[Rfam]
RNA sequence: CUUGUCUGCUUUCUUGGACGUUUCCUCCCUAGACUUGGGCCGCAGUUCGCUGCGGCCCCUUUUUUUGUGACCG
Numbered sequence: 001c002u003u004g005u006c007u008g009c010u011u012u013c014u015u016g017g018a019c020g021u022u023u024c025c026u027c028c029c030u031a032g033a034c035u036u037g038g039g040c041c042g043c044a045g046u047u048c049g050c051u052g053c054g055g056c057c058c059c060u061u062u063u064u065u066u067g068u069g070a071c072c073g
Stems, first nucleotide, its partner, number of pairs: 008019001010017002037058009